This 125-nucleotide sequence from Octodon degus belongs to the Rfam family "Small nucleolar RNA SNORA32". Pairs were carried over by alignment from the consensus structure, which was predicted with RNAfold. It is annotated as an H/ACA-box small nucleolar RNA. Rfam links the family to the GO terms nucleolus and RNA processing. From the family's description: ACA32 is a member of the H/ACA class of snoRNA that guide the sites of modification of uridines to pseudouridines. The match comes from Rfam's covariance-model search (88 bits). NCBI's taxonomy places the organism under Eukaryota, Bilateria, Craniata, Boreoeutheria, Octodon.
[Rfam]
Nucleotides: 125
Stems, first nucleotide, its partner, number of pairs: 003054005010047003026042001028040002072117003078111004089104001091102001
Number, partner (000 for none) and nucleotide at each position: 001000g002000g003054g004053u005052c006051a007050u008000u009000a010047c011046c012045a013000a014000g015000g016000c017000u018000u019000a020000a021000g022000g023000a024000a025000u026042g027000a028040a029039g030000u031000u032000u033000u034000u035000u036000c037000a038000u039029u040028u041000g042026c043000u044000g045012u046011g047010g048000a049000g050007a051006u052005g053004a054003c055000c056000a057000u058000u059000a060000a061000a062000a063000a064000a065000a066000a067000a068000u069000u070000c071000c072117u073116c074115a075000c076000u077000a078111a079110g080109u081108u082000u083000u084000c085000u086000c087000u088000c089104u090000u091102c092000u093000a094000c095000c096000u097000c098000a099000u100000u101000a102091g103000c104089a105000a106000g107000c108081a109080a110079c111078u112000u113000c114000u115074u116073g117072a118000a119000a120000a121000c122000a123000u124000u125000a